bZIP non canonical Hac1/Xbp1 intron: a 77-nucleotide RNA from Erpetoichthys calabaricus. Rfam's curators write: bZIP intron RNA is a non-canonical intron that was first reported in HAC1 gene in yeast and XBP1 gene in Metazoa. The source organism's lineage runs through Eukaryota, Opisthokonta, Gnathostomata, Polypteriformes and Erpetoichthys. It is annotated as a small RNA.

[Rfam]
RNA sequence: UGAUGACCGGGUCUUCUGAGUCCGCAGCACUCAGACUAUGUGUGCCUCUGCAGAAGGUACAGGCCCAGACGUCUUCA
Number, nucleotide and partner (000 for none) at each position: 001u077002g076003a075004u000005g073006a072007c071008c000009g066010g065011g064012u063013c062014u000015u000016c034017u033018g032019a031020g030021u029022c000023c000024g000025c000026a000027g000028c000029a021030c020031u019032c018033a017034g016035a000036c000037u000038a000039u000040g000041u000042g000043u059044g058045c057046c056047u055048c000049u000050g000051c000052a000053g000054a000055a047056g046057g045058u044059a043060c000061a000062g013063g012064c011065c010066c009067a000068g000069a000070c000071g007072u006073c005074u000075u003076c002077a001